[Rfam]
RNA sequence: AUCGCAGCGGUUGUCACAGAACGCAUCAAUCUUUCGCCUUUUACUAAAGAUUGCCGUGUGACAUCCGCAUCAAAUGCGAAUCAAGAAUUUUUGACGGCGUCUCGACGCCA
Numbered sequence: 001a002u003c004g005c006a007g008c009g010g011u012u013g014u015c016a017c018a019g020a021a022c023g024c025a026u027c028a029a030u031c032u033u034u035c036g037c038c039u040u041u042u043a044c045u046a047a048a049g050a051u052u053g054c055c056g057u058g059u060g061a062c063a064u065c066c067g068c069a070u071c072a073a074a075u076g077c078g079a080a081u082c083a084a085g086a087a088u089u090u091u092u093g094a095c096g097g098c099g100u101c102u103c104g105a106c107g108c109c110a
Base pairs, nucleotide, nucleotide: 003078004077005076006075008067009066010065012063013062014061015060016059017058018057027053028052029051030050031049032048033047034046096109097108098107099106100105
Dot-bracket structure: ..((((.(((.(((((((........((((((((...........))))))))...))))))).))).......)))).................(((((....))))).
A member of the RNA family "U5 spliceosomal RNA" from Toxoplasma gondii, 110 nucleotides long. The base pairs follow the family's consensus structure, which is taken from published work. Rfam 15.1 lists 28,527 matches to the family in 2,489 species. Taxonomically the source falls in Toxoplasma gondii type III (Eukaryota, Sar, Alveolata, Toxoplasma). U5 RNA is a component of both types of known spliceosome. The precise function of this molecule is unknown, though it is known that the 5' loop is required for splice site selection and p220 binding, and that both the 3' stem-loop and the Sm site are important for Sm protein binding and cap methylation. The family's RNA type in Rfam is spliceosomal small nuclear RNA.